[Rfam]
RNA sequence: UCAACAAAGUGGAGGAUUGGGUCCUCACUUUAUAUUCAAAAUAGUGAGAUUCUGAUUCUCCAUUUAAUUGU
Numbered sequence: 001u002c003a004a005c006a007a008a009g010u011g012g013a014g015g016a017u018u019g020g021g022u023c024c025u026c027a028c029u030u031u032a033u034a035u036u037c038a039a040a041a042u043a044g045u046g047a048g049a050u051u052c053u054g055a056u057u058c059u060c061c062a063u064u065u066a067a068u069u070g071u
Stems, first nucleotide, its partner, number of pairs: 008065002010062007017054001022049002025047005

Shown here is a 71-nucleotide sequence from Dracunculus medinensis, a member of the family "mir-1175 microRNA precursor family". Gene Ontology terms of the family: miRNA-mediated post-transcriptional gene silencing and RISC complex. Rfam 15.1 lists 181 matches to the family in 170 species.